The family of this 102-nucleotide RNA from Nicotiana sylvestris is "Small nucleolar RNA Z157/R69/R10". The family's consensus secondary structure was predicted with PFOLD. The family has 10 seed sequences and 836 matches in Rfam 15.1. The source organism's lineage runs through Eukaryota, lamiids, Solanales, Nicotianoideae and Nicotiana. The family is grouped with related families in Rfam's "SNORD52 clan". It is annotated as a C/D-box small nucleolar RNA.

Nucleotides: 102
Stems, first nucleotide, its partner, number of pairs: 002101007038074004047067001049065004
Number, partner (000 for none) and nucleotide at each position: 001000a002101u003100g004099u005098g006097u007096g008095u009000g010000g011000u012000g013000a014000g015000g016000a017000a018000g019000c020000a021000a022000a023000u024000u025000a026000u027000g028000u029000g030000g031000a032000c033000u034000a035000g036000a037000g038074u039073u040072u041071c042000u043000g044000a045000u046000c047067c048000u049065g050064g051063g052062g053000a054000u055000u056000c057000a058000u059000u060000c061000c062052c063051u064050u065049u066000u067047g068000g069000u070000u071041g072040a073039a074038g075000a076000c077000a078000a079000a080000c081000c082000c083000u084000u085000g086000g087000c088000u089000g090000u091000c092000u093000g094000a095008g096007c097006a098005c099004a100003c101002a102000c